[Rfam]
RNA sequence: UCCCCCACAGUUCUCCGGCCCUCGUUUUUCGCAAGAAAUGUCUAUUGCAGGCCGCCCGUCCCUUUUGGUUACCCAUGCAUAUGCCGCUCUUGAGCCUGUAACAGGACCUCGUGAAUGCCGCAGCUGGAUUAUGCUGGUUUGUAGCGCGUCCUGUAUAGGACGUACCAGGUAGGACGGGUGAACGAGGUUCGGAACUUAACCCUAAGAAGAUAU
Numbered sequence: 001u002c003c004c005c006c007a008c009a010g011u012u013c014u015c016c017g018g019c020c021c022u023c024g025u026u027u028u029u030c031g032c033a034a035g036a037a038a039u040g041u042c043u044a045u046u047g048c049a050g051g052c053c054g055c056c057c058g059u060c061c062c063u064u065u066u067g068g069u070u071a072c073c074c075a076u077g078c079a080u081a082u083g084c085c086g087c088u089c090u091u092g093a094g095c096c097u098g099u100a101a102c103a104g105g106a107c108c109u110c111g112u113g114a115a116u117g118c119c120g121c122a123g124c125u126g127g128a129u130u131a132u133g134c135u136g137g138u139u140u141g142u143a144g145c146g147c148g149u150c151c152u153g154u155a156u157a158g159g160a161c162g163u164a165c166c167a168g169g170u171a172g173g174a175c176g177g178g179u180g181a182a183c184g185a186g187g188u189u190c191g192g193a194a195c196u197u198a199a200c201c202c203u204a205a206g207a208a209g210a211u212a213u
Stems, first nucleotide, its partner, number of pairs: 009196003015192004
RNA: Ascomycota telomerase RNA, nucleotides 13 to 225
Organism: Fusarium torreyae